RNA sequence: CUUGGGGGGGGGGUCUCUCAGCCCGAUUGCAAGAAGGUGCAGGCCAGGCCAAGGGACCCCACUGGUGCACC
Dot-bracket structure: ..((.(.(.(((((((((..(((.(.(((((......))))).)..)))..))))))))).)...).))..
Numbered sequence: 001c002u003u004g005g006g007g008g009g010g011g012g013g014u015c016u017c018u019c020a021g022c023c024c025g026a027u028u029g030c031a032a033g034a035a036g037g038u039g040c041a042g043g044c045c046a047g048g049c050c051a052a053g054g055g056a057c058c059c060c061a062c063u064g065g066u067g068c069a070c071c
Stems, first nucleotide, its partner, number of pairs: 003069002006066001008062001010060009021049003025044001027042005

Rfam assigns this 71-nucleotide sequence from Myotis myotis to the family "mir-9193 microRNA precursor family". The family's consensus secondary structure was predicted with RNAalifold. Rfam 15.1 lists 6,008 matches to the family in 8 species. NCBI's taxonomy places the organism under Eukaryota, Chordata, Craniata, Boreoeutheria, Myotis.